[Rfam]
This 75-nucleotide RNA sequence from Peterkaempfera bronchialis belongs to the Rfam family "ASpks TB sRNA". Lineage of the source: Bacteria > Bacillati > Actinomycetota > Actinomycetes > Peterkaempfera. A search with the family's covariance model found it, with a score of 82 bits. The family has 77 seed sequences and 9,052 matches in Rfam 15.1. Pairs were carried over by alignment from the consensus structure, which is taken from published work.
RNA sequence: CUUCACCGACCCCAACCACAACGGCCGGCCCUCCGGCCGCCCCUGACCGUAGGUCGCCAGCAGCGCCUGCGCCUC
Dot-bracket structure: ...............((.....))......(.(....((...(((.(.(....).).)))...))...).)....